[Rfam]
RNA sequence: UCUCCAUUUCACGUGCUCUCUCGUCUGUCAGAGUUGCGAGAGAGUGUGGUAAAUGAAGAGA
Numbered sequence: 001u002c003u004c005c006a007u008u009u010c011a012c013g014u015g016c017u018c019u020c021u022c023g024u025c026u027g028u029c030a031g032a033g034u035u036g037c038g039a040g041a042g043a044g045u046g047u048g049g050u051a052a053a054u055g056a057a058g059a060g061a
Base pairs, nucleotide, nucleotide: 001059002058003057005055006054007053012048013047014046015045016044017043019041020040021039022038
RNA: mir-8364 microRNA precursor family
Organism: Pristionchus pacificus